[Rfam]
RNA: Small nucleolar RNA SNORA1
RNA sequence: AGCCUCAUUCUGGAUUAGAAUGAGCACUGUUGAUUGGUGUCCAGAAUUGGUCAAUGUGGCUAAAAUUGAGACACAGGUCAUGCUUUCAUCACAAUAAAUAUUUGGGGCUGGUGAGAUGGCUCAGUGGUCUAA
Numbered sequence: 001a002g003c004c005u006c007a008u009u010c011u012g013g014a015u016u017a018g019a020a021u022g023a024g025c026a027c028u029g030u031u032g033a034u035u036g037g038u039g040u041c042c043a044g045a046a047u048u049g050g051u052c053a054a055u056g057u058g059g060c061u062a063a064a065a066u067u068g069a070g071a072c073a074c075a076g077g078u079c080a081u082g083c084u085u086u087c088a089u090c091a092c093a094a095u096a097a098a099u100a101u102u103u104g105g106g107g108c109u110g111g112u113g114a115g116a117u118g119g120c121u122c123a124g125u126g127g128u129c130u131a132a
Stems, first nucleotide, its partner, number of pairs: 002060003006056003021043002024040004088128005